Shown here is a 68-nucleotide RNA sequence, a member of the family "Cyano-1 RNA". The family has 265 seed sequences and 283 matches in Rfam 15.1. The family's consensus secondary structure is taken from published work.

[Rfam]
RNA sequence: AGGUGUGUAGGAGAGGUUUUACUGAAACAGUGGAAACAAGGAAACACUUGAUUUAGUUAAACCAAGGA
Dot-bracket structure: ..............(((((..((....(((((............))).))....))..))))).....
Numbered sequence: 001a002g003g004u005g006u007g008u009a010g011g012a013g014a015g016g017u018u019u020u021a022c023u024g025a026a027a028c029a030g031u032g033g034a035a036a037c038a039a040g041g042a043a044a045c046a047c048u049u050g051a052u053u054u055a056g057u058u059a060a061a062c063c064a065a066g067g068a
Stems, first nucleotide, its partner, number of pairs: 015063005022056002028050002030047003